[Rfam]
Nucleotides: 130
Stems, first nucleotide, its partner, number of pairs: 009120008023107001025105002028102006048086002053080002056077002060073004
Number, partner (000 for none) and nucleotide at each position: 001000a002000g003000a004000a005000c006000a007000c008000a009120c010119a011118u012117u013116g014115a015114u016113u017000a018000u019000c020000c021000c022000c023107a024000a025105g026104g027000c028102c029101a030100u031099g032098g033097g034000a035000u036000a037000a038000a039000a040000a041000a042000a043000a044000a045000c046000u047000u048086u049085g050000c051000a052000a053080a054079a055000c056077u057076a058000a059000g060073u061072u062071a063070g064000c065000a066000c067000a068000c069000c070063u071062u072061a073060g074000a075000a076057u077056g078000g079054u080053u081000c082000u083000a084000a085049c086048a087000c088000g089000a090000u091000u092000a093000c094000u095000a096000a097033c098032c099031u100030a101029u102028g103000c104026c105025u106000c107023u108000a109000u110000a111000c112000u113016a114015g115014u116013u117012g118011a119010u120009g121000g122000g123000a124000a125000a126000a127000a128000c129000c130000u